[Rfam]
RNA sequence: AAAGGUCGGCACAAUGAGAUGCAACACCGAAAGGUGAAGCUAAUCCCCUAAAACCGGCCCAAGUUCGGAUUGAGGGCUGAAACUCGCCCUCAUGAAGCUGGA
Number, nucleotide and partner (000 for none) at each position: 001a000002a000003a000004g059005g058006u057007c056008g055009g054010c000011a000012c000013a000014a000015u000016g047017a000018g045019a000020u000021g040022c039023a000024a000025c036026a035027c034028c033029g000030a000031a000032a000033g028034g027035u026036g025037a000038a000039g022040c021041u000042a000043a000044u000045c018046c000047c016048c000049u000050a000051a000052a000053a000054c009055c008056g007057g006058c005059c004060c000061a000062a000063g000064u000065u000066c097067g000068g000069a000070u000071u092072g091073a090074g089075g088076g087077c086078u000079g000080a000081a000082a000083c000084u000085c000086g077087c076088c075089c074090u073091c072092a071093u000094g000095a000096a000097g066098c000099u000100g000101g000102a000

Archaeal small subunit ribosomal RNA: a 102-nucleotide part of an RNA from Candidatus Micrarchaeum sp. AZ1. The family's consensus secondary structure is taken from published work. The match comes from Rfam's covariance-model search (1334 bits). For this family Rfam cites "Crystal structure of the ribosome at 5.5 A resolution" (Yusupov et al., Science, 2001). Its family is annotated with structural constituent of ribosome and ribosome in the Gene Ontology. Its Rfam clan is "SSU clan".